Rfam assigns this 67-nucleotide RNA sequence from Solibacillus silvestris to the family "Bacillaceae-1 RNA". By type it is a small RNA. Taxonomically the source falls in Solibacillus silvestris (Bacteria, Bacilli, Caryophanaceae, Solibacillus). It scores 75 bits against the family's covariance model. The family has 95 seed sequences and 5,721 matches in Rfam 15.1. The family's consensus secondary structure is taken from published work.
[Rfam]
RNA sequence: GCAAAAGGAACAAAAGCUAAGAACGCCACGUCCUGUGGUAACGCUUUUGUGACCAACAUCGUGUUGG
Dot-bracket structure: ..........(((((((.......(((((.....)))))...)))))))...(((((.....)))))